[Rfam]
RNA sequence: UUCCAUCUUCGGGGCAGGGUGAAAUUCCCGACCGACGGUAAGGGACCCACUUGGUGUUCUAAGUCCGUGACCCGCUUGGUACGUUUGUACCGAUCGGUGGACCUGGUGAGAAUCCGGGACCGACAGUUACAGUCUGGAUGGGAGAAGAUGUAG
Numbered sequence: 001u002u003c004c005a006u007c008u009u010c011g012g013g014g015c016a017g018g019g020u021g022a023a024a025u026u027c028c029c030g031a032c033c034g035a036c037g038g039u040a041a042g043g044g045a046c047c048c049a050c051u052u053g054g055u056g057u058u059c060u061a062a063g064u065c066c067g068u069g070a071c072c073c074g075c076u077u078g079g080u081a082c083g084u085u086u087g088u089a090c091c092g093a094u095c096g097g098u099g100g101a102c103c104u105g106g107u108g109a110g111a112a113u114c115c116g117g118g119a120c121c122g123a124c125a126g127u128u129a130c131a132g133u134c135u136g137g138a139u140g141g142g143a144g145a146a147g148a149u150g151u152a153g
Stems, first nucleotide, its partner, number of pairs: 004150007017029003031133002033122002035068004063120002072097002102118005124136003

This 153-nucleotide RNA from Pontibacillus chungwhensis belongs to the Rfam family "FMN riboswitch aptamer (RFN element)".
From the family's description: The RFN element is a highly conserved domain that is found frequently in the 5'-untranslated regions of prokaryotic mRNAs that encode for flavin mononucleotide (FMN) biosynthesis and transport proteins. This element is a metabolite-dependent riboswitch that directly binds FMN in the absence of proteins. In Bacillus subtilis, the riboswitch most likely controls gene expression by causing premature transcription termination within the 5' untranslated region of the ribDEAHT operon and precluding access to the ribosome-binding site of ypaA mRNA.The FMN riboswitch structure, reported in present an FMN-bound six-stem junction, adopts a butterfly-like scaffold, stapled together by opposingly directed but nearly identically folded peripheral domains.
The base pairs follow the family's consensus structure, which is taken from published work.
The organism belongs to Pontibacillus chungwhensis, within Bacteria.